[Rfam]
RNA sequence: UGGUGCUGUGAUGAUGCCUUAAUAUUGUGGUUUCGACUCACUGAGAGUAAAAUGAGGACCUACAAUUCCUUGGCUGUGUCUGAGCACCC
Numbered sequence: 001u002g003g004u005g006c007u008g009u010g011a012u013g014a015u016g017c018c019u020u021a022a023u024a025u026u027g028u029g030g031u032u033u034c035g036a037c038u039c040a041c042u043g044a045g046a047g048u049a050a051a052a053u054g055a056g057g058a059c060c061u062a063c064a065a066u067u068c069c070u071u072g073g074c075u076g077u078g079u080c081u082g083a084g085c086a087c088c089c
Base pairs, nucleotide, nucleotide: 003087004086005085006084
The family of this 89-nucleotide RNA sequence is "Small nucleolar RNA SNORD53/SNORD92". Gene Ontology terms of the family: RNA processing and nucleolus. Clan: SNORD52 clan. Rfam's curators put it in the seed alignment.